[Rfam]
RNA: Bacillus sRNA ncr1241
Organism: Bacillus sp. HNG
RNA sequence: UCAAAGGCUUUCUAGUAUUCCCCCUUUUGUAUGUUGGACAAAACCAAAUUGGUUUUGUCCAUUUUU
Dot-bracket structure: ..(((((...............)))))........((((((((((.....))))))))))......